[Rfam]
The family of this 104-nucleotide sequence from Tepidibacillus sp. HK-1 is "SAM riboswitch aptamer (S box leader)".
RNA sequence: UUCUUAUCCAGAGUGGUGGAGGGACUGGCCCAAUGAAACCCGGCAACCGAUUUGUAUGAUACGGUGCUAAUUCCAGCAGAACAAUUUGUUCUGAAAGAUAAGAA
Numbered sequence: 001u002u003c004u005u006a007u008c009c010a011g012a013g014u015g016g017u018g019g020a021g022g023g024a025c026u027g028g029c030c031c032a033a034u035g036a037a038a039c040c041c042g043g044c045a046a047c048c049g050a051u052u053u054g055u056a057u058g059a060u061a062c063g064g065u066g067c068u069a070a071u072u073c074c075a076g077c078a079g080a081a082c083a084a085u086u087u088g089u090u091c092u093g094a095a096a097g098a099u100a101a102g103a104a
Stems, first nucleotide, its partner, number of pairs: 001104008013041001015040003021031003025076004042068004047064002049060001051059002072096001077093006

The SAM riboswitch is found upstream of a number of genes which code for proteins involved in methionine or cysteine biosynthesis in Gram-positive bacteria. Pairs were carried over by alignment from the consensus structure, which is taken from published work.